Annotation: The record is a 163-nucleotide RNA from Sapajus apella, which matches "U1 spliceosomal RNA" in Rfam. For this family Rfam cites "The uRNA database" (Zwieb, Nucleic Acids Res, 1997). Gene Ontology terms of the family: pre-mRNA 5'-splice site binding, U1 snRNP and mRNA 5'-splice site recognition. It is annotated as a spliceosomal small nuclear RNA. The family's consensus secondary structure is taken from published work. The family has 100 seed sequences and 40,184 matches in Rfam 15.1.
[Rfam]
RNA sequence: GUGCCUACCUGGCAAGGGAGAUACCAUGACCACGAAGGCGGUUUUCCCGGGGCGAGGCUUAUCCAUUGCACUCCAGAUGUGCUGACCUGUGUGAUUUCCCCAAAUGUGGGAAACUUGACUGCAUAAUUUGUGGUAGGGGGGACUGCGUUCAUGCUUUCCCCUG
Number, nucleotide and partner (000 for none) at each position: 001g000002u000003g000004c000005c000006u000007a000008c000009c000010u000011g000012g122013c121014a120015a000016g048017g047018g046019a045020g044021a043022u000023a042024c041025c040026a000027u038028g000029a000030c000031c000032a000033c000034g000035a000036a000037g000038g027039c000040g025041g024042u023043u021044u020045u019046c018047c017048c016049g090050g000051g088052g087053c000054g086055a000056g083057g082058c081059u000060u079061a078062u077063c076064c000065a000066u000067u000068g000069c000070a000071c000072u000073c000074c000075a000076g063077a062078u061079g060080u000081g058082c057083u056084g000085a000086c054087c052088u051089g000090u049091g000092u117093g116094a115095u113096u112097u111098c000099c109100c108101c000102a000103a000104a000105u000106g000107u000108g100109g099110g000111a097112a096113a095114c000115u094116u093117g092118a000119c000120u014121g013122c012123a000124u000125a000126a000127u000128u000129u000130g000131u000132g000133g000134u000135a000136g000137g162138g161139g160140g159141g158142a157143c000144u000145g154146c153147g152148u000149u000150c000151a000152u147153g146154c145155u000156u000157u142158c141159c140160c139161c138162u137163g000
Overview: The match comes from Rfam's covariance-model search (120 bits).